The record is a 76-nucleotide RNA from Halobiforma nitratireducens, which matches "eL15-Euryarchaeota ribosomal protein leader" in Rfam.
The family's consensus secondary structure is taken from published work.
Lineage of the source: Archaea > Halobacteria > Halobacteriales > Halobiforma > Halobiforma nitratireducens.
Rfam classes the family as a cis-regulatory leader.
RNA sequence: CCUGUUCGGCAACCGACGCCGCCACAGGCCGGGAUGUGAUCCGCGGGGCCCCGCCCCGUUGGGAUUGAACCAGGAA
Numbered sequence: 001c002c003u004g005u006u007c008g009g010c011a012a013c014c015g016a017c018g019c020c021g022c023c024a025c026a027g028g029c030c031g032g033g034a035u036g037u038g039a040u041c042c043g044c045g046g047g048g049c050c051c052c053g054c055c056c057c058g059u060u061g062g063g064a065u066u067g068a069a070c071c072a073g074g075a076a
Base pairs, nucleotide, nucleotide: 001028002027003026004025005024031071032070038066039065040064041063042062